Rfam assigns this 150-nucleotide RNA from Jilunia laotingensis to the family "Bacteroides sRNA BTnc231". On this family, see Ryan et al., Nat Commun 2020: "A high-resolution transcriptome map identifies small RNA regulation of metabolism in the gut microbe Bacteroides thetaiotaomicron". Taxonomically the source falls in Jilunia (Bacteria, Pseudomonadati, Bacteroidia, Bacteroidaceae).
[Rfam]
Nucleotides: 150
Base pairs, nucleotide, nucleotide: 026078027077028076029075030074031073032072035071036070037069038068039067040066045062046061047060048059049058050057051056080117081116082115083114084113086110087109088108089107090101120149121148122147123146124145125144126143127142129140130139131138132137
Number, partner (000 for none) and nucleotide at each position: 001000a002000c003000g004000u005000u006000u007000u008000u009000u010000u011000c012000a013000u014000a015000g016000a017000g018000a019000u020000u021000u022000a023000g024000a025000u026078u027077u028076a029075a030074g031073g032072u033000u034000a035071g036070a037069a038068a039067a040066a041000a042000u043000g044000u045062g046061g047060a048059a049058g050057u051056c052000g053000u054000g055000a056051g057050a058049c059048u060047u061046c062045c063000c064000u065000u066040u067039u068038u069037u070036u071035c072032g073031c074030c075029u076028u077027a078026a079000c080117g081116u082115u083114u084113a085000c086110u087109g088108c089107c090101a091000a092000u093000u094000u095000u096000u097000c098000u099000u100000u101090u102000g103000u104000u105000g106000a107089g108088g109087c110086a111000a112000g113084u114083a115082a116081a117080c118000u119000c120149a121148a122147a123146a124145a125144g126143c127142c128000c129140c130139u131138u132137c133000g134000a135000g136000a137132g138131a139130a140129g141000a142127g143126g144125c145124u146123u147122u148121u149120u150000u